[Rfam]
RNA sequence: ACCGUCUGCCUUUCUUGGACGUUUCCUCCCUAGACUUGGGCCGCGCUUCGUGCGCGGCCUUUUUUUGUCCGCGGC
Numbered sequence: 001a002c003c004g005u006c007u008g009c010c011u012u013u014c015u016u017g018g019a020c021g022u023u024u025c026c027u028c029c030c031u032a033g034a035c036u037u038g039g040g041c042c043g044c045g046c047u048u049c050g051u052g053c054g055c056g057g058c059c060u061u062u063u064u065u066u067g068u069c070c071g072c073g074g075c
Base pairs, nucleotide, nucleotide: 008020010018011017038060039059040058041057042056043055044054045053046052
Dot-bracket structure: .......(.((.....)).).................(((((((((.....)))))))))...............
Description:
The family of this 75-nucleotide sequence from Caenispirillum bisanense is "Makes More Granules Regulator RNA (mmgR)". It scores 68 bits against the family's covariance model. Lineage of the source: Bacteria > Pseudomonadati > Pseudomonadota > Novispirillaceae > Caenispirillum.